[Rfam]
RNA sequence: UUAGCUAUUUUAGAUAGGUUUGUAUUCAUAAACUUAUGGAUGCAAACACAGAUAUUUGUUUGUAUCUAUGAUGGCUAAGGAUGUUUGAAAUGACUUGCUCGCCGCAUAGAUGAAAAAUCUAUAGUGGCUUUUUUAUUUGAUUAUUUCAGGGCGCACUGU
Numbered sequence: 001u002u003a004g005c006u007a008u009u010u011u012a013g014a015u016a017g018g019u020u021u022g023u024a025u026u027c028a029u030a031a032a033c034u035u036a037u038g039g040a041u042g043c044a045a046a047c048a049c050a051g052a053u054a055u056u057u058g059u060u061u062g063u064a065u066c067u068a069u070g071a072u073g074g075c076u077a078a079g080g081a082u083g084u085u086u087g088a089a090a091u092g093a094c095u096u097g098c099u100c101g102c103c104g105c106a107u108a109g110a111u112g113a114a115a116a117a118u119c120u121a122u123a124g125u126g127g128c129u130u131u132u133u134u135a136u137u138u139g140a141u142u143a144u145u146u147c148a149g150g151g152c153g154c155a156c157u158g159u
Stems, first nucleotide, its partner, number of pairs: 001078007011068006018047012049062005084150008101128005107121003
Rfam assigns this 159-nucleotide RNA from Enterococcus lacertideformus to the family "Enterococcus sRNA 2410". The family's consensus secondary structure was predicted with RNAfold. A reference for the family is Sinel et al. (2017), "Small RNAs in vancomycin-resistant Enterococcus faecium involved in daptomycin response and resistance", Sci Rep. About the family: Produced as 2 transcripts on Northern blot. Expressed in mid, late exponential and early stationary phases of growth. Expression remained uniform under daptomycin exposure. The organism belongs to Enterococcus, within Bacteria.